[Rfam]
This 86-nucleotide RNA sequence from Oryctes borbonicus belongs to the Rfam family "Selenocysteine transfer RNA". The source organism's lineage runs through Eukaryota, Panarthropoda, Mandibulata, Hexapoda and Oryctes. The match comes from Rfam's covariance-model search (72 bits).

RNA sequence: GUCCAAUUGACCUCUAGCGGUCUGGGGUGCAGGCUUCAAACCUGUAGUCGACUAACGUCGAAGUGGUUCAAUUCCACCUGUUGGAC
Numbered sequence: 001g002u003c004c005a006a007u008u009g010a011c012c013u014c015u016a017g018c019g020g021u022c023u024g025g026g027g028u029g030c031a032g033g034c035u036u037c038a039a040a041c042c043u044g045u046a047g048u049c050g051a052c053u054a055a056c057g058u059c060g061a062a063g064u065g066g067u068u069c070a071a072u073u074c075c076a077c078c079u080g081u082u083g084g085a086c
Base pairs, nucleotide, nucleotide: 001086002085003084004083005082006081007080009078012027013026014025015024016023017022028046029045030044031043032042033041048061049060050059051058052057063077064076065075066074